Description: Rfam assigns this 54-nucleotide RNA sequence from Megalops atlanticus to the family "UnaL2 LINE 3' element". The eel long interspersed element (LINE) UnaL2 and its partner short interspersed element (SINE) share a conserved 3' tail containing a stem-loop that is critical for their retrotransposition. Presumably, the first step of retrotransposition is the recognition of their 3' tails by UnaL2-encoded reverse transcriptase. The solution structure of a 17-nucleotide RNA derived from the 3' tail of UnaL2 was determined by NMR. The family's RNA type in Rfam is cis-regulatory element. NCBI's taxonomy places the organism under Eukaryota, Gnathostomata, Elopocephalai, Elopocephala, Megalops. The family's consensus secondary structure is taken from published work.

RNA sequence: ACCGGUAACCUAUGUAAGUCGCUUUGAAUAAAAGCGUCUGCUAAAUGAAUAAAU
Numbered sequence: 001a002c003c004g005g006u007a008a009c010c011u012a013u014g015u016a017a018g019u020c021g022c023u024u025u026g027a028a029u030a031a032a033a034g035c036g037u038c039u040g041c042u043a044a045a046u047g048a049a050u051a052a053a054u
Base pairs, nucleotide, nucleotide: 013043014041015040016039020036021035022034023033024032025031